[Rfam]
RNA sequence: CUUUGUGAUGAAAACUCCAACCAAAAGCAUAGUUCAACUGAGACGUCAACGUCUUUGAACGAGAACCAAUCCAUCAUUCAAUCUUCUGAAA
Numbered sequence: 001c002u003u004u005g006u007g008a009u010g011a012a013a014a015c016u017c018c019a020a021c022c023a024a025a026a027g028c029a030u031a032g033u034u035c036a037a038c039u040g041a042g043a044c045g046u047c048a049a050c051g052u053c054u055u056u057g058a059a060c061g062a063g064a065a066c067c068a069a070u071c072c073a074u075c076a077u078u079c080a081a082u083c084u085u086c087u088g089a090a091a
Stems, first nucleotide, its partner, number of pairs: 006019002010015001032060005042053004